[Rfam]
RNA sequence: AUGAAGGUAGCAGGAGAGCGGUGAGUGGUUAUUCAGAGCCAUCACCCACCGAAGAAGUAAAUCUUUCAGGUGUCUCCCCCGACGAACAGCCCUUGUUGU
Numbered sequence: 001a002u003g004a005a006g007g008u009a010g011c012a013g014g015a016g017a018g019c020g021g022u023g024a025g026u027g028g029u030u031a032u033u034c035a036g037a038g039c040c041a042u043c044a045c046c047c048a049c050c051g052a053a054g055a056a057g058u059a060a061a062u063c064u065u066u067c068a069g070g071u072g073u074c075u076c077c078c079c080c081g082a083c084g085a086a087c088a089g090c091c092c093u094u095g096u097u098g099u
Stems, first nucleotide, its partner, number of pairs: 006094002010090002013087001020046004048071003051067002055065003
The record is a 99-nucleotide RNA from Oceanospirillales bacterium LUC14_002_19_P2, which matches "Glycine riboswitch aptamer" in Rfam. The pairing is the family consensus, mapped onto this sequence.